[Rfam]
RNA sequence: UCGUGCUAGACGGGGAGGUAGCGGUGCCCUGUUACCUGCAAUCCGCUAUAGCAGGGUCGAAUUCCUAUAAUAGGCAUGCUUCUGUAAGGUCUGCCCUUUGCAAGUGGCGAUGAAAAUUGGGUCCUACGCAACGGAAGCCUAUGAACCCCGUCAGGUUCGGAAGAAAGCAGCGGUAAGUAGUCACUUUCGUGUGCCGUGGGAUUGCCUGGUUCGAGCUAACUGCACUGGUUACGCUUGUAUAUGCAUGUCGAAUAUAGGUGCACGA
Numbered sequence: 001u002c003g004u005g006c007u008a009g010a011c012g013g014g015g016a017g018g019u020a021g022c023g024g025u026g027c028c029c030u031g032u033u034a035c036c037u038g039c040a041a042u043c044c045g046c047u048a049u050a051g052c053a054g055g056g057u058c059g060a061a062u063u064c065c066u067a068u069a070a071u072a073g074g075c076a077u078g079c080u081u082c083u084g085u086a087a088g089g090u091c092u093g094c095c096c097u098u099u100g101c102a103a104g105u106g107g108c109g110a111u112g113a114a115a116a117u118u119g120g121g122u123c124c125u126a127c128g129c130a131a132c133g134g135a136a137g138c139c140u141a142u143g144a145a146c147c148c149c150g151u152c153a154g155g156u157u158c159g160g161a162a163g164a165a166a167g168c169a170g171c172g173g174u175a176a177g178u179a180g181u182c183a184c185u186u187u188c189g190u191g192u193g194c195c196g197u198g199g200g201a202u203u204g205c206c207u208g209g210u211u212c213g214a215g216c217u218a219a220c221u222g223c224a225c226u227g228g229u230u231a232c233g234c235u236u237g238u239a240u241a242u243g244c245a246u247g248u249c250g251a252a253u254a255u256a257g258g259u260g261c262a263c264g265a
Stems, first nucleotide, its partner, number of pairs: 001265006009058003012030004017025001019023001035055005064258006073249005079243001081241001083239006092231002096227001099224003104220002106217003115211008123200006129191002132189005137182001139180004148173004156165003